A member of the RNA family "Mammalian CPEB3 ribozyme" from Alligator sinensis, 80 nucleotides long. The mammalian CPEB3 ribozyme is a self cleaving RNA located in the second intron of the CPEB3 gene which belongs to a family of genes regulating messenger RNA polyadenylation.

RNA sequence: AGAGGUCACAAGUUUGAGGCCGUAGAAGAAGUGCUCACAGCAUGGCCAUGUCAGAUUCCAAUGAAUCUUCAAAUUCUGCU
Numbered sequence: 001a002g003a004g005g006u007c008a009c010a011a012g013u014u015u016g017a018g019g020c021c022g023u024a025g026a027a028g029a030a031g032u033g034c035u036c037a038c039a040g041c042a043u044g045g046c047c048a049u050g051u052c053a054g055a056u057u058c059c060a061a062u063g064a065a066u067c068u069u070c071a072a073a074u075u076c077u078g079c080u
Stems, first nucleotide, its partner, number of pairs: 013048001018047004024080002027077004031043003053068006